The family of this 390-nucleotide RNA from Alsobacter soli is "Bacterial RNase P class A".
It is annotated as a ribozyme.
The match comes from Rfam's covariance-model search (285 bits).
NCBI's taxonomy places the organism under Bacteria, Alphaproteobacteria, Hyphomicrobiales, Alsobacteraceae, Alsobacter.
[Rfam]
RNA sequence: CCAGUCGGCCGGACGGCCGCUCUCCGCGAGGAGGGAGGAAAGUCCGGGCUCCAUCGAGACACGGCGCCGGAUAACGUCCGGCGGGGGUGACCCCAGGGAUAGCGCCACAGAAAGCAAACCGCCUCGGCUCCGGCCGGGGUCAGGGUGAAAGGGUGCGGUAAGAGCGCACCGCGCGACCGGCAACGGGAGCGGCAUGGCAAGCCCCGCCGGGAGCAAAACCGAAUAGGGGCGACGGCGGUGGGCGACCACCGCGGGGGCGUCUCGAGCCCUUGUCGUCCGGGUUGGUUGCUUGAGGCGGUCGGCGACGACCGUCCCAGAGGAAUGGCCGUCACGUCGCGACGCGCAAGCGCCGCGGCCCUACAGAACCCGGCUUACAGGCCGGCUGGCAUC
Numbered sequence: 001c002c003a004g005u006c007g008g009c010c011g012g013a014c015g016g017c018c019g020c021u022c023u024c025c026g027c028g029a030g031g032a033g034g035g036a037g038g039a040a041a042g043u044c045c046g047g048g049c050u051c052c053a054u055c056g057a058g059a060c061a062c063g064g065c066g067c068c069g070g071a072u073a074a075c076g077u078c079c080g081g082c083g084g085g086g087g088u089g090a091c092c093c094c095a096g097g098g099a100u101a102g103c104g105c106c107a108c109a110g111a112a113a114g115c116a117a118a119c120c121g122c123c124u125c126g127g128c129u130c131c132g133g134c135c136g137g138g139g140u141c142a143g144g145g146u147g148a149a150a151g152g153g154u155g156c157g158g159u160a161a162g163a164g165c166g167c168a169c170c171g172c173g174c175g176a177c178c179g180g181c182a183a184c185g186g187g188a189g190c191g192g193c194a195u196g197g198c199a200a201g202c203c204c205c206g207c208c209g210g211g212a213g214c215a216a217a218a219c220c221g222a223a224u225a226g227g228g229g230c231g232a233c234g235g236c237g238g239u240g241g242g243c244g245a246c247c248a249c250c251g252c253g254g255g256g257g258c259g260u261c262u263c264g265a266g267c268c269c270u271u272g273u274c275g276u277c278c279g280g281g282u283u284g285g286u287u288g289c290u291u292g293a294g295g296c297g298g299u300c301g302g303c304g305a306c307g308a309c310c311g312u313c314c315c316a317g318a319g320g321a322a323u324g325g326c327c328g329u330c331a332c333g334u335c336g337c338g339a340c341g342c343g344c345a346a347g348c349g350c351c352g353c354g355g356c357c358c359u360a361c362a363g364a365a366c367c368c369g370g371c372u373u374a375c376a377g378g379c380c381g382g383c384u385g386g387c388a389u390c
Stems, first nucleotide, its partner, number of pairs: 001386010011375001012330007020035006040373003044370005049213004058262001062209005067081005082096001083094004097204002102202002104198003119144002121140008152170006171193001172191003177186003217287004227278006254270005294313008